[Rfam]
RNA sequence: AUCUAUCUUCGGGGCAGGGUGUAAUUCCCGACCGGCGGUGAUGAGAGUAUGUCUCUAAGCCCGCGAGCCAAUUAUAAGUGGAUAAUGUAUUUUCACAGGAUAUUAGUACGAAUCAAGUGAAAUACUAUUAUCGCUUUGGCAGGAUUUGGUUAAAUUCCAAAGCCGACAGUAUAGUCUGGAUGGGAGAAGAUGGAG
Numbered sequence: 001a002u003c004u005a006u007c008u009u010c011g012g013g014g015c016a017g018g019g020u021g022u023a024a025u026u027c028c029c030g031a032c033c034g035g036c037g038g039u040g041a042u043g044a045g046a047g048u049a050u051g052u053c054u055c056u057a058a059g060c061c062c063g064c065g066a067g068c069c070a071a072u073u074a075u076a077a078g079u080g081g082a083u084a085a086u087g088u089a090u091u092u093u094c095a096c097a098g099g100a101u102a103u104u105a106g107u108a109c110g111a112a113u114c115a116a117g118u119g120a121a122a123u124a125c126u127a128u129u130a131u132c133g134c135u136u137u138g139g140c141a142g143g144a145u146u147u148g149g150u151u152a153a154a155u156u157c158c159a160a161a162g163c164c165g166a167c168a169g170u171a172u173a174g175u176c177u178g179g180a181u182g183g184g185a186g187a188a189g190a191u192g193g194a195g
Base pairs, nucleotide, nucleotide: 003193004192005191006190007189008188009187010186017029018028019027031175032174033165034164035064036063037062038061059163060162069139145161146160147159148158149157167178168177169176